Rfam assigns this 154-nucleotide RNA from Roseibium aquae to the family "Alphaproteobacterial sRNA ar45". Lineage of the source: Bacteria > Pseudomonadota > Alphaproteobacteria > Stappiaceae > Roseibium. It is annotated as a small RNA. The literature on the family includes a 2012 paper in RNA Biol by del Val et al., "A survey of sRNA families in alpha-proteobacteria".
[Rfam]
RNA sequence: GCCCAAAUUCGCACGUGCCCGUGGCCGUUCAUGGGGUUCGACACUUGGAUCUGUCCAUAACUCGGAUCUCUUAAGGGGUAGCUGCCGUAAAACACCGCCAAGGGGCGGGGCAGUCAAUCCGGACGGCUGAAAGCAACGACGUAAGAGGGCCCUU
Numbered sequence: 001g002c003c004c005a006a007a008u009u010c011g012c013a014c015g016u017g018c019c020c021g022u023g024g025c026c027g028u029u030c031a032u033g034g035g036g037u038u039c040g041a042c043a044c045u046u047g048g049a050u051c052u053g054u055c056c057a058u059a060a061c062u063c064g065g066a067u068c069u070c071u072u073a074a075g076g077g078g079u080a081g082c083u084g085c086c087g088u089a090a091a092a093c094a095c096c097g098c099c100a101a102g103g104g105g106c107g108g109g110g111c112a113g114u115c116a117a118u119c120c121g122g123a124c125g126g127c128u129g130a131a132a133g134c135a136a137c138g139a140c141g142u143a144a145g146a147g148g149g150c151c152c153u154u
Base pairs, nucleotide, nucleotide: 001150002149003148004147009139010138011137016135017134018133023128024127025126026125027124028123029122030121031058032057033056034055035054038049039048041046061075062074064072065071076120077119078118079117082113083112084111085110086109